[Rfam]
RNA sequence: UUAUUAUCGGGAACAGCGUUUUCCAUAAUGU
Numbered sequence: 001u002u003a004u005u006a007u008c009g010g011g012a013a014c015a016g017c018g019u020u021u022u023c024c025a026u027a028a029u030g031u
Base pairs, nucleotide, nucleotide: 002030003029004028005027006026007025009024010023011022012021013020014018